[Rfam]
RNA sequence: AUCUUUGCGCUUGGGGCAAUGACGCAGUUAGUGAGGGUUUCCCGAGACGCGUCAAUUGCUGGUUGAAAACUAUUUCCAAACCCCCUCCCAGGUCUGCCCUCGGAGAAUUUUUGGAAGGCUUGUUCAGC
Numbered sequence: 001a002u003c004u005u006u007g008c009g010c011u012u013g014g015g016g017c018a019a020u021g022a023c024g025c026a027g028u029u030a031g032u033g034a035g036g037g038u039u040u041c042c043c044g045a046g047a048c049g050c051g052u053c054a055a056u057u058g059c060u061g062g063u064u065g066a067a068a069a070c071u072a073u074u075u076c077c078a079a080a081c082c083c084c085c086u087c088c089c090a091g092g093u094c095u096g097c098c099c100u101c102g103g104a105g106a107a108u109u110u111u112u113g114g115a116a117g118g119c120u121u122g123u124u125c126a127g128c
Base pairs, nucleotide, nucleotide: 021053022052023051024050025049027048028047029046035043036042037041085105086104087103088102090100091099092098118128119127120126
The record is a 128-nucleotide RNA from Ceratopteris richardii, which matches "U4 spliceosomal RNA" in Rfam. By type it is a spliceosomal small nuclear RNA. Clan: U4 clan. Lineage of the source: Eukaryota > Tracheophyta > Pteridaceae > Parkerioideae > Ceratopteris.